[Rfam]
RNA: Nuclear RNase P
RNA sequence: GACAGCGCAAAAGCCGCGAGGCUCGCACCACACAGGAUGUUUCUGCACGUCUUUCUUCGCGAGCGGGCUAAGGUCUGAGGAUUCUUGUCCCCACGAUCGACUCUAGCUGGGUCCGGUCAUCAUAGACUGAGCGACGUACCAGCAACACAGUCUCUGCACCUCCCUCCGACCGAGCUCUGCUCCUCGGAUCCCGUAGACUCGCCAUUAUACAGACCGGCGGUCUGCUGGUGAUGAGGGAUAGUCACUCAGCAAGUUUGCUAGUGGCGCAAGAGAUCAACCGGGACUUUGGGAUCCGUCGCGGGGACUGGGCAUAUCAUGCGUCUCCGCCGCAACUCUCUACCGUGUUCGUUCGUUCAGCCCUGUCGUUGGACGCCCUCACAUUGGUAUGCACUGCUCCAUAAUUUGGUGUGAACGCCCGAGGAGUCGAGACGGCGUGUAUGUUUUUCAGUGCACUUCGCGGCUCGCAUGAAGGCCUUCGGGUCUUGCGAAACUCGAUUCAGACUACUCUUGUGCUGGC
Numbered sequence: 001g002a003c004a005g006c007g008c009a010a011a012a013g014c015c016g017c018g019a020g021g022c023u024c025g026c027a028c029c030a031c032a033c034a035g036g037a038u039g040u041u042u043c044u045g046c047a048c049g050u051c052u053u054u055c056u057u058c059g060c061g062a063g064c065g066g067g068c069u070a071a072g073g074u075c076u077g078a079g080g081a082u083u084c085u086u087g088u089c090c091c092c093a094c095g096a097u098c099g100a101c102u103c104u105a106g107c108u109g110g111g112u113c114c115g116g117u118c119a120u121c122a123u124a125g126a127c128u129g130a131g132c133g134a135c136g137u138a139c140c141a142g143c144a145a146c147a148c149a150g151u152c153u154c155u156g157c158a159c160c161u162c163c164c165u166c167c168g169a170c171c172g173a174g175c176u177c178u179g180c181u182c183c184u185c186g187g188a189u190c191c192c193g194u195a196g197a198c199u200c201g202c203c204a205u206u207a208u209a210c211a212g213a214c215c216g217g218c219g220g221u222c223u224g225c226u227g228g229u230g231a232u233g234a235g236g237g238a239u240a241g242u243c244a245c246u247c248a249g250c251a252a253g254u255u256u257g258c259u260a261g262u263g264g265c266g267c268a269a270g271a272g273a274u275c276a277a278c279c280g281g282g283a284c285u286u287u288g289g290g291a292u293c294c295g296u297c298g299c300g301g302g303g304a305c306u307g308g309g310c311a312u313a314u315c316a317u318g319c320g321u322c323u324c325c326g327c328c329g330c331a332a333c334u335c336u337c338u339a340c341c342g343u344g345u346u347c348g349u350u351c352g353u354u355c356a357g358c359c360c361u362g363u364c365g366u367u368g369g370a371c372g373c374c375c376u377c378a379c380a381u382u383g384g385u386a387u388g389c390a391c392u393g394c395u396c397c398a399u400a401a402u403u404u405g406g407u408g409u410g411a412a413c414g415c416c417c418g419a420g421g422a423g424u425c426g427a428g429a430c431g432g433c434g435u436g437u438a439u440g441u442u443u444u445u446c447a448g449u450g451c452a453c454u455u456c457g458c459g460g461c462u463c464g465c466a467u468g469a470a471g472g473c474c475u476u477c478g479g480g481u482c483u484u485g486c487g488a489a490a491c492u493c494g495a496u497u498c499a500g501a502c503u504a505c506u507c508u509u510g511u512g513c514u515g516g517c
Stems, first nucleotide, its partner, number of pairs: 001517001003515002008510003013461007021064005035052006075500005089303004099113005114129005131299006149285006462488005468482001